[Rfam]
RNA sequence: CGGCUCCCCGGGCUGGUCCCAUCCACGUGGUCCUGCCCUGCCCUCCGGGAGCGACAGCAACGGGACUGGAUUGGGGGCUCCUGUCCGAGGGGACGCAGGAGACCACGGUUGCCAGUGCGACA
Numbered sequence: 001c002g003g004c005u006c007c008c009c010g011g012g013c014u015g016g017u018c019c020c021a022u023c024c025a026c027g028u029g030g031u032c033c034u035g036c037c038c039u040g041c042c043c044u045c046c047g048g049g050a051g052c053g054a055c056a057g058c059a060a061c062g063g064g065a066c067u068g069g070a071u072u073g074g075g076g077g078c079u080c081c082u083g084u085c086c087g088a089g090g091g092g093a094c095g096c097a098g099g100a101g102a103c104c105a106c107g108g109u110u111g112c113c114a115g116u117g118c119g120a121c122a
Stems, first nucleotide, its partner, number of pairs: 003052006011042003015038002018035001023030002063118001065116005071108003076104002078101005083094004
A member of the RNA family "Small Cajal body specific RNA 23" from Cnephaeus nilssonii, 122 nucleotides long.
The match comes from Rfam's covariance-model search (94 bits).
The family's RNA type in Rfam is small Cajal body RNA.
Taxonomically the source falls in Cnephaeus (Eukaryota, Teleostomi, Boreoeutheria, Chiroptera).
The base pairs follow the family's consensus structure, which was predicted with RNAfold.
A reference for the family is Darzacq et al. (2002), "Cajal body-specific small nuclear RNAs: a novel class of 2'-O-methylation and pseudouridylation guide RNAs", EMBO J.
About the family: scaRNAs are a specific class of small nuclear RNAs which localise to the Cajal bodies and guide the modification of RNA polymerase II transcribed spliceosomal RNAs U1, U2, U4, U5 and U12. ACA11 belongs to the H/ACA box class of guide RNAs as it has the predicted hairpin-hinge-hairpin-tail structure,the conserved H/ACA-box motifs and is found associated with GAR1.